[Rfam]
RNA sequence: CUUGAGCGAGCCCAGCCGCACGGGCGGGCGGCCGUCCGGUCGUUCCUGUCCGUAGGUGGCCAGCAGGGCCUGGGCCUC
Numbered sequence: 001c002u003u004g005a006g007c008g009a010g011c012c013c014a015g016c017c018g019c020a021c022g023g024g025c026g027g028g029c030g031g032c033c034g035u036c037c038g039g040u041c042g043u044u045c046c047u048g049u050c051c052g053u054a055g056g057u058g059g060c061c062a063g064c065a066g067g068g069c070c071u072g073g074g075c076c077u078c
Stems, first nucleotide, its partner, number of pairs: 016027002035073002041068001046063003050059003
RNA: ASpks TB sRNA
Organism: Streptomyces triculaminicus